[Rfam]
Rfam assigns this 81-nucleotide RNA sequence from Vibrio navarrensis to the family "RpsF leader".
RNA sequence: GUCAAUAACCCUUAGUUCCUUGCUUCCUCUGGACGACCGGGCCAAACGUGGAAGCUAAUAAUCCGUAAGGAGCAAUAAAUG
Number, nucleotide and partner (000 for none) at each position: 001g000002u000003c000004a000005a000006u000007a000008a000009c000010c000011c000012u000013u000014a000015g073016u072017u071018c070019c069020u068021u067022g055023c054024u053025u052026c051027c050028u000029c000030u044031g043032g042033a000034c000035g000036a000037c000038c000039g000040g000041g000042c032043c031044a030045a000046a000047c000048g000049u000050g027051g026052a025053a024054g023055c022056u000057a000058a000059u000060a000061a000062u000063c000064c000065g000066u000067a021068a020069g019070g018071a017072g016073c015074a000075a000076u000077a000078a000079a000080u000081g000
Rfam describes the family as follows. Conserved and widely distributed to many bacterial species RNA structure. On this family, see Fu et al., RNA 2014: "Bacterial RNA motif in the 5' UTR of rpsF interacts with an S6:S18 complex". The base pairs follow the family's consensus structure. By type it is a cis-regulatory leader.